[Rfam]
RNA sequence: CAGGCACCCAACCCAAGAACUGCCGCUACUGCAGUGGUGUUUAAACAGUGGUGCACACAGCAAAGUGCUUUGUUGCCUUUGGGAGGCUGGACAGUGCCCCCCAGAGCGAAUCAGGAAGUUCUACAGUU
Numbered sequence: 001c002a003g004g005c006a007c008c009c010a011a012c013c014c015a016a017g018a019a020c021u022g023c024c025g026c027u028a029c030u031g032c033a034g035u036g037g038u039g040u041u042u043a044a045a046c047a048g049u050g051g052u053g054c055a056c057a058c059a060g061c062a063a064a065g066u067g068c069u070u071u072g073u074u075g076c077c078u079u080u081g082g083g084a085g086g087c088u089g090g091a092c093a094g095u096g097c098c099c100c101c102c103a104g105a106g107c108g109a110a111u112c113a114g115g116a117a118g119u120u121c122u123a124c125a126g127u128u
Stems, first nucleotide, its partner, number of pairs: 004054005018041003022038006065121001067119005077106007085098003
Dot-bracket structure: ...(((((.........(((.((((((.....)))))))))........)))))..........(.(((((.....(((((((.(((........))).)))))))........))))).).......
Shown here is a 128-nucleotide RNA sequence from Rattus norvegicus, a member of the family "Small nucleolar RNA SNORA68".
Rfam describes the family as follows. U68 is a member of the H/ACA class of small nucleolar RNAs (snoRNAs) which act as guides in the the modification of uridines to pseudouridines.
For this family Rfam cites "The family of box ACA small nucleolar RNAs is defined by an evolutionarily conserved secondary structure and ubiquitous sequence elements essential for RNA accumulation" (Ganot et al., Genes Dev, 1997).
Rfam 15.1 lists 1,079 matches to the family in 643 species.
NCBI's taxonomy places the organism under Eukaryota, Craniata, Rodentia, Muridae, Rattus.
It scores 87 bits against the family's covariance model.